[Rfam]
RNA sequence: AAUGUAUCCCGUAAUACAGCUCAUAUAGCCCCGCGAGAAUGGCGCGGGGCGUUUCUACGGAGCCGCCGACGGCUCUGCUAUGGGUGUUUCGAUGCAGGGU
Numbered sequence: 001a002a003u004g005u006a007u008c009c010c011g012u013a014a015u016a017c018a019g020c021u022c023a024u025a026u027a028g029c030c031c032c033g034c035g036a037g038a039a040u041g042g043c044g045c046g047g048g049g050c051g052u053u054u055c056u057a058c059g060g061a062g063c064c065g066c067c068g069a070c071g072g073c074u075c076u077g078c079u080a081u082g083g084g085u086g087u088u089u090c091g092a093u094g095c096a097g098g099g100u
Stems, first nucleotide, its partner, number of pairs: 019085007029049007059076007
Rfam assigns this 100-nucleotide RNA sequence from Firmicutes bacterium CAG:176 to the family "Purine riboswitch aptamer". Pairs were carried over by alignment from the consensus structure, which is taken from published work. For this family Rfam cites "Three-state mechanism couples ligand and temperature sensing in riboswitches" (Reining et al., Nature, 2013).